[Rfam]
RNA sequence: UGCGGGGCGGCCUUCACAUCUGAAGGAAGUCAGCGGCAAACUUCCGCCCCGAGGGACACGAAUCUCAUAUAAGGCUAGGUGACAUUGGAUAAGUCUGCAUAACAAGAUAAAAUCCAUACUGCCGAAGGUGUCACAGAAUAAAUGAGGCGGGGACAUGGAAGGUAAGUCUGUACU
Numbered sequence: 001u002g003c004g005g006g007g008c009g010g011c012c013u014u015c016a017c018a019u020c021u022g023a024a025g026g027a028a029g030u031c032a033g034c035g036g037c038a039a040a041c042u043u044c045c046g047c048c049c050c051g052a053g054g055g056a057c058a059c060g061a062a063u064c065u066c067a068u069a070u071a072a073g074g075c076u077a078g079g080u081g082a083c084a085u086u087g088g089a090u091a092a093g094u095c096u097g098c099a100u101a102a103c104a105a106g107a108u109a110a111a112a113u114c115c116a117u118a119c120u121g122c123c124g125a126a127g128g129u130g131u132c133a134c135a136g137a138a139u140a141a142a143u144g145a146g147g148c149g150g151g152g153a154c155a156u157g158g159a160a161g162g163u164a165a166g167u168c169u170g171u172a173c174u
Stems, first nucleotide, its partner, number of pairs: 001016002004013003029174001032171001036167002041161006047152005063147006074139001076137001079134006087115004093108004
The family of this 174-nucleotide sequence from Scopulibacillus darangshiensis is "Group II catalytic intron D1-D4-3". For this family Rfam cites "Group II introns: structure and catalytic versatility of large natural ribozymes" (Lehmann and Schmidt, Crit Rev Biochem Mol Biol, 2003). Taxonomically the source falls in Scopulibacillus (Bacteria, Bacillota, Bacilli, Caryophanales). The pairing is the family consensus, mapped onto this sequence.